[Rfam]
RNA sequence: ACAUCGAUAUAGUUUUACCCUUGUAUAAUUUUGGGGAUAUGGCCCAUAAGUUUCUACCUGGCGACCGUGAAUUGCCGGACUAUGAGGGAAAGUAGUGCAUGA
Numbered sequence: 001a002c003a004u005c006g007a008u009a010u011a012g013u014u015u016u017a018c019c020c021u022u023g024u025a026u027a028a029u030u031u032u033g034g035g036g037a038u039a040u041g042g043c044c045c046a047u048a049a050g051u052u053u054c055u056a057c058c059u060g061g062c063g064a065c066c067g068u069g070a071a072u073u074g075c076c077g078g079a080c081u082a083u084g085a086g087g088g089a090a091a092g093u094a095g096u097g098c099a100u101g102a
Stems, first nucleotide, its partner, number of pairs: 018088008029049002032046004058078007